[Rfam]
RNA sequence: GUCACUUGUGUCUGUUUUCACCUAACUUGUGGACUAAGACUUAUGGACAGGCACAAAAACAAAUCCCCUUUGUCACCUGGAACUCAUUGUUGAGUGAAUUUCGAUGCAGAGGACAAGGAGUGUU
Numbered sequence: 001g002u003c004a005c006u007u008g009u010g011u012c013u014g015u016u017u018u019c020a021c022c023u024a025a026c027u028u029g030u031g032g033a034c035u036a037a038g039a040c041u042u043a044u045g046g047a048c049a050g051g052c053a054c055a056a057a058a059a060c061a062a063a064u065c066c067c068c069u070u071u072g073u074c075a076c077c078u079g080g081a082a083c084u085c086a087u088u089g090u091u092g093a094g095u096g097a098a099u100u101u102c103g104a105u106g107c108a109g110a111g112g113a114c115a116a117g118g119a120g121u122g123u124u
Stems, first nucleotide, its partner, number of pairs: 001054002005051005011045001014040005026031001063121002066118002069115001071113001073111001078103005084097004
A member of the RNA family "Small nucleolar RNA SNORA40" from Chinchilla lanigera, 124 nucleotides long.
Rfam classes the family as an H/ACA-box small nucleolar RNA.
Taxonomically the source falls in Chinchilla (Eukaryota, Chordata, Mammalia, Hystricomorpha).
The snoRNA ACA 40 belongs to the H/ACA family of snoRNAs and guides the pseudouridylation of 28S rRNA subunit at position U4565. NB This family has a high threshold value to exclude a large number of closely related sequences that do not appear to have conserved H and ACA boxes, and may be pseudogenes.